[Rfam]
RNA sequence: AUCAGUUGGUGGCGACUUCUCCCUUAGCGGGCGGUCUACUUGCACCAAUUUGUCAUCUGAUAAAGCAAAUAGCCAAAAGCCCGCACCCAGCGGGCUUUUUAAU
Numbered sequence: 001a002u003c004a005g006u007u008g009g010u011g012g013c014g015a016c017u018u019c020u021c022c023c024u025u026a027g028c029g030g031g032c033g034g035u036c037u038a039c040u041u042g043c044a045c046c047a048a049u050u051u052g053u054c055a056u057c058u059g060a061u062a063a064a065g066c067a068a069a070u071a072g073c074c075a076a077a078a079g080c081c082c083g084c085a086c087c088c089a090g091c092g093g094g095c096u097u098u099u100u101a102a103u
Base pairs, nucleotide, nucleotide: 009043010042011041012040014037018034019033021031022030023029078096079095080094081093082092083091084090
This 103-nucleotide RNA from Budvicia aquatica belongs to the Rfam family "Tryptophan operon leader". A reference for the family is Kolter and Yanofsky (1982), "Attenuation in amino acid biosynthetic operons", Annu Rev Genet. Rfam links the family to the GO terms tryptophan biosynthetic process and transcriptional attenuation by ribosome. From the family's description: At least 6 amino acid operons are known to be regulated by attenuation. The organism belongs to Budvicia, within Bacteria. The family's RNA type in Rfam is cis-regulatory leader.